Description
U2 spliceosomal RNA: a 202-nucleotide RNA from Microdochium bolleyi. Pairs were carried over by alignment from the consensus structure, which is taken from published work.
RNA sequence: AUCUCUCUCCACUACAGUUGCCUUUUGGCUUAGAUCAAGUGUAGUAUCUGUUCUUUUCAGUUUAAUAUCUGAAAGUUCUCUAAGGAGAACAAUCAAUAUUAAUCUAAUUUUUAUCACCCGGGUGCGGUCCUCUGUGCUUGCGCAUGAUCGCCGCCCACCGUGUCCCUGGUAUUACACUGCCUCCAGGCGACGCGAACCCUUC
Numbered sequence: 001a002u003c004u005c006u007c008u009c010c011a012c013u014a015c016a017g018u019u020g021c022c023u024u025u026u027g028g029c030u031u032a033g034a035u036c037a038a039g040u041g042u043a044g045u046a047u048c049u050g051u052u053c054u055u056u057u058c059a060g061u062u063u064a065a066u067a068u069c070u071g072a073a074a075g076u077u078c079u080c081u082a083a084g085g086a087g088a089a090c091a092a093u094c095a096a097u098a099u100u101a102a103u104c105u106a107a108u109u110u111u112u113a114u115c116a117c118c119c120g121g122g123u124g125c126g127g128u129c130c131u132c133u134g135u136g137c138u139u140g141c142g143c144a145u146g147a148u149c150g151c152c153g154c155c156c157a158c159c160g161u162g163u164c165c166c167u168g169g170u171a172u173u174a175c176a177c178u179g180c181c182u183c184c185a186g187g188c189g190a191c192g193c194g195a196a197c198c199c200u201u202c
Base pairs, nucleotide, nucleotide: 008034009033020029021028022027055074056073057072058071059070060069075090076089077088078087079086080085120155121154124151125150126149127148133144134143135142136141159194160193161192162191163190165187166186167185168184169183
The source organism's lineage runs through Eukaryota, saccharomyceta, Sordariomycetes, Xylariomycetidae and Microdochium.
From the family's description: U2 is a small nuclear RNA (snRNA) component of the spliceosome (involved in pre-mRNA splicing).